This 56-nucleotide sequence belongs to the Rfam family "Glutamine-II riboswitch aptamer".
Gene Ontology term of the family: glutamine binding.
It is one of the family's seed sequences.
[Rfam]
RNA sequence: UGACGUUGAGCCCACUACGGGCUGCAUAAAUUCCGGCCAGGCAACGGGGGCCGGUU
Numbered sequence: 001u002g003a004c005g006u007u008g009a010g011c012c013c014a015c016u017a018c019g020g021g022c023u024g025c026a027u028a029a030a031u032u033c034c035g036g037c038c039a040g041g042c043a044a045c046g047g048g049g050g051c052c053g054g055u056u
Stems, first nucleotide, its partner, number of pairs: 004046005010022004033054004037049002